A member of the RNA family "Group I catalytic intron" from Monilinia fructicola, 294 nucleotides long.

RNA sequence: CUAAGAGGGUCGUAAGAGGGGGUGUUAACAGCAUUCCUUUAGUGAUAUAAUCGCAACACUGUCAAAUUGCGGGGAGUUCCUAAAGCUCAGACUACCGCCUCGGCGCUGAAAAGCACUGAAGGCACCAAGGUUAGCAGCCUUGGGUAUGGUAACAACGUCUGCAGAUGCUACAAUGGAUGAUCCGCAGCCAAGCUCUAAGAAUCUUUUGAUUUACGGGCGGGGUUCAACGACUAGACGGCAGUGGGCCUGUGAACAGGUUUAAGAUAUAGUCUGCGCCUAGGGAUAAAGCCCAAG
Numbered sequence: 001c002u003a004a005g006a007g008g009g010u011c012g013u014a015a016g017a018g019g020g021g022g023u024g025u026u027a028a029c030a031g032c033a034u035u036c037c038u039u040u041a042g043u044g045a046u047a048u049a050a051u052c053g054c055a056a057c058a059c060u061g062u063c064a065a066a067u068u069g070c071g072g073g074g075a076g077u078u079c080c081u082a083a084a085g086c087u088c089a090g091a092c093u094a095c096c097g098c099c100u101c102g103g104c105g106c107u108g109a110a111a112a113g114c115a116c117u118g119a120a121g122g123c124a125c126c127a128a129g130g131u132u133a134g135c136a137g138c139c140u141u142g143g144g145u146a147u148g149g150u151a152a153c154a155a156c157g158u159c160u161g162c163a164g165a166u167g168c169u170a171c172a173a174u175g176g177a178u179g180a181u182c183c184g185c186a187g188c189c190a191a192g193c194u195c196u197a198a199g200a201a202u203c204u205u206u207u208g209a210u211u212u213a214c215g216g217g218c219g220g221g222g223u224u225c226a227a228c229g230a231c232u233a234g235a236c237g238g239c240a241g242u243g244g245g246c247c248u249g250u251g252a253a254c255a256g257g258u259u260u261a262a263g264a265u266a267u268a269g270u271c272u273g274c275g276c277c278u279a280g281g282g283a284u285a286a287a288g289c290c291c292a293a294g
Stems, first nucleotide, its partner, number of pairs: 001005001017038005057243005063237001068186006078177003187223002192218004200211004227272001229271005245258005280291003